A member of the RNA family "Class I RNA from Dictyostelium" from Cavenderia fasciculata, 62 nucleotides long. About the family: Dictyostelium Class I RNA was first reported for Aspegren et al. 2004 in Dictyostelium discoideum. Sucgang et al. 2011 identify putative homologs of Class I RNA in D. discoideum and D. purpureum. Avesson et al. 2011 report that Class I RNA present a down regulation during the development of social amoeba Dictyostelium discoideum, they also found that deletion of one of the Class I RNAs, DdR-21, results in aberrant development. Kjellin et al. 2020 report an extended number of expressed Class I RNA genes in class Dictyostelia, in their analysis they remark that Class I RNA appear to be unique to dictyostelid social amoebas, and they hypothesise that Class I RNAs were involved in evolution of multicellularity in Dictyostelia. The family's RNA type in Rfam is non-coding RNA gene. Taxonomically the source falls in Cavenderia (Eukaryota, Dictyostelia, Acytosteliales, Cavenderiaceae). For this family Rfam cites "Novel non-coding RNAs in Dictyostelium discoideum and their expression during development" (Aspegren et al., Nucleic Acids Res, 2004).
[Rfam]
Nucleotides: 062
Stems, first nucleotide, its partner, number of pairs: 001060003004056002
Number, partner (000 for none) and nucleotide at each position: 001060g002059a003058u004056c005055c006000c007000u008000u009000a010000c011000u012000a013000c014000a015000a016000c017000c018000a019000a020000a021000u022000u023000c024000c025000a026000a027000u028000c029000u030000c031000a032000a033000u034000u035000a036000u037000c038000c039000a040000a041000a042000u043000g044000a045000a046000a047000u048000a049000c050000c051000c052000c053000u054000a055005g056004g057000g058003a059002u060001c061000u062000g